[Rfam]
RNA sequence: UCCUGAGCGCGUGUUUCACGACGAUGUUGGGAAAGCUGACGCCCUUGAGCCGCGCGGUGCGGAUAUAUUGCGAGGUCAUCACUUCGGCCAUCGAGGCCCGCGUCAUCCGGGCGAUAUACCCCAUGCCAUAGGCGGCGAUGGUCAGCACCGGCAGGAAGAAAUUCUCGAAGGUGACAUUG
Number, nucleotide and partner (000 for none) at each position: 001u000002c000003c000004u141005g000006a139007g000008c137009g136010c135011g000012u000013g000014u131015u130016u128017c000018a000019c000020g000021a124022c000023g000024a000025u000026g000027u000028u123029g122030g121031g120032a000033a000034a000035g000036c000037u000038g000039a000040c111041g000042c109043c000044c000045u000046u105047g104048a103049g000050c000051c100052g099053c000054g097055c075056g000057g000058u072059g071060c070061g069062g068063a000064u000065a000066u000067a000068u062069u061070g060071c059072g058073a000074g000075g055076u000077c000078a000079u000080c000081a000082c096083u095084u094085c093086g092087g000088c000089c000090a000091u000092c086093g085094a084095g083096g082097c054098c000099c052100g051101c000102g000103u048104c047105a046106u000107c000108c000109g042110g000111g040112c000113g000114a000115u000116a000117u000118a000119c000120c031121c030122c029123a028124u021125g000126c000127c000128a016129u000130a015131g014132g000133c000134g000135g010136c009137g008138a000139u006140g000141g004142u000143c000144a000145g000146c179147a178148c000149c000150g000151g172152c171153a000154g165155g164156a163157a162158g000159a000160a000161a000162u157163u156164c155165u154166c000167g000168a000169a000170g000171g152172u151173g000174a000175c000176a000177u000178u147179g146
Record summary:
This 179-nucleotide RNA sequence from Roseovarius indicus belongs to the Rfam family "Ruegeria cis52 sRNA". For this family Rfam cites "Experimental Identification of Small Non-Coding RNAs in the Model Marine Bacterium Ruegeria pomeroyi DSS-3" (Rivers et al., Front Microbiol, 2016). A search with the family's covariance model found it, with a score of 122 bits. The family's consensus secondary structure was predicted with RNAfold. By type it is a small RNA. Gene Ontology term of the family: regulation of gene expression.